Annotation:
Shown here is a 78-nucleotide RNA sequence from Actinoplanes digitatis, a member of the family "Actino-pnp RNA". Lineage of the source: Bacteria > Bacillati > Actinomycetes > Micromonosporaceae > Actinoplanes. Rfam classes the family as a cis-regulatory element.
[Rfam]
RNA sequence: CCCGGUCCUCGGUAGUGGUUCCCGAGCACGCCCGAUUUUCCUACAGGCUCUGCUCGGGCACUUCGAUCGAAGACCGGC
Numbered sequence: 001c002c003c004g005g006u007c008c009u010c011g012g013u014a015g016u017g018g019u020u021c022c023c024g025a026g027c028a029c030g031c032c033c034g035a036u037u038u039u040c041c042u043a044c045a046g047g048c049u050c051u052g053c054u055c056g057g058g059c060a061c062u063u064c065g066a067u068c069g070a071a072g073a074c075c076g077g078c
Stems, first nucleotide, its partner, number of pairs: 002077006009070005017062003021058008030050001